[Rfam]
RNA sequence: CUCAAGGAAGCGUCCAUGUGGACAGAAAACGCGUCCUUGAGGGCACGCUUUGUGUCCACGUGGACAAAGCGCUUCCUUGAGG
Numbered sequence: 001c002u003c004a005a006g007g008a009a010g011c012g013u014c015c016a017u018g019u020g021g022a023c024a025g026a027a028a029a030c031g032c033g034u035c036c037u038u039g040a041g042g043g044c045a046c047g048c049u050u051u052g053u054g055u056c057c058a059c060g061u062g063g064a065c066a067a068a069g070c071g072c073u074u075c076c077u078u079g080a081g082g
Base pairs, nucleotide, nucleotide: 001081002080003079004078005077006076007075008074009073010072011071012070013064014063015062016061018059019058020057021056022055023054024053026051027050028049030047031046033044035042036041
RNA: MIR7486 microRNA precursor family
Organism: Gossypium lobatum